About this RNA: This 70-nucleotide RNA sequence from Musca domestica belongs to the Rfam family "mir-2 microRNA precursor family". The base pairs follow the family's consensus structure, which was predicted with PFOLD. NCBI's taxonomy places the organism under Eukaryota, Altocrustacea, Neoptera, Eumetabola, Musca. Rfam 15.1 lists 918 matches to the family in 280 species. A search with the family's covariance model found it, with a score of 61 bits.
RNA sequence: CGACGCGUCGAAUUGGUUGUGAAUUAUGUUGCAUUUCUUAUACAUAUCACAGCCAUUUUGACGAGUUCGA
Numbered sequence: 001c002g003a004c005g006c007g008u009c010g011a012a013u014u015g016g017u018u019g020u021g022a023a024u025u026a027u028g029u030u031g032c033a034u035u036u037c038u039u040a041u042a043c044a045u046a047u048c049a050c051a052g053c054c055a056u057u058u059u060g061a062c063g064a065g066u067u068c069g070a
Base pairs, nucleotide, nucleotide: 006063007062008061009060010059011058012057014055015054016053017052018051019050020049021048022047025046026045027044